[Rfam]
RNA sequence: GAAGUAAGCCAGACAGCCGCUGGCCAUCGCAAGAUGGCGGGAGGAAGGUCCGGACUCCAUAGAGCAGGGUGACGGCUAACGACCGUCCGCCGUGAGGCGCGGAAUAGGGCCACAGAGACGAGCGUAUUAAGUUACGGUGAAACGCGGUAACCUCCACCCGGAGCAAUUUCAAAUAGGCACGCAUUGAUGCUGCUCGCGGAGCGUGCGGGUAGAAAGCUUGAGCCGUGGAGCAAUUCACGGCCUAGAGGAAUGGCUGUCAUAGCGCGCGGGGGCAACUCUUCGCGCCGUAACAGAAUCCGGCCUAUCGGCUUGCUUCACUU
Numbered sequence: 001g002a003a004g005u006a007a008g009c010c011a012g013a014c015a016g017c018c019g020c021u022g023g024c025c026a027u028c029g030c031a032a033g034a035u036g037g038c039g040g041g042a043g044g045a046a047g048g049u050c051c052g053g054a055c056u057c058c059a060u061a062g063a064g065c066a067g068g069g070u071g072a073c074g075g076c077u078a079a080c081g082a083c084c085g086u087c088c089g090c091c092g093u094g095a096g097g098c099g100c101g102g103a104a105u106a107g108g109g110c111c112a113c114a115g116a117g118a119c120g121a122g123c124g125u126a127u128u129a130a131g132u133u134a135c136g137g138u139g140a141a142a143c144g145c146g147g148u149a150a151c152c153u154c155c156a157c158c159c160g161g162a163g164c165a166a167u168u169u170c171a172a173a174u175a176g177g178c179a180c181g182c183a184u185u186g187a188u189g190c191u192g193c194u195c196g197c198g199g200a201g202c203g204u205g206c207g208g209g210u211a212g213a214a215a216g217c218u219u220g221a222g223c224c225g226u227g228g229a230g231c232a233a234u235u236c237a238c239g240g241c242c243u244a245g246a247g248g249a250a251u252g253g254c255u256g257u258c259a260u261a262g263c264g265c266g267c268g269g270g271g272g273c274a275a276c277u278c279u280u281c282g283c284g285c286c287g288u289a290a291c292a293g294a295a296u297c298c299g300g301c302c303u304a305u306c307g308g309c310u311u312g313c314u315u316c317a318c319u320u
Base pairs, nucleotide, nucleotide: 001316002315003314004313005312006311007310008309009308010307011305012258013257014256015255016254017253018252020041021040023038024037025036026035027034028033046303047302048301050300051299052298053297054296055163056162057161058160062195063194064193065192067159068158069157070156071155072086073085074084075083087101088099089098090097091096102154103153107152108151109148110147111146123136124135125134126133167215168214169213170212177206178205179204180203181202182201188198189197190196222241223240224239225238226237227236228235229234
RNA: Bacterial RNase P class A
Organism: Noviherbaspirillum saxi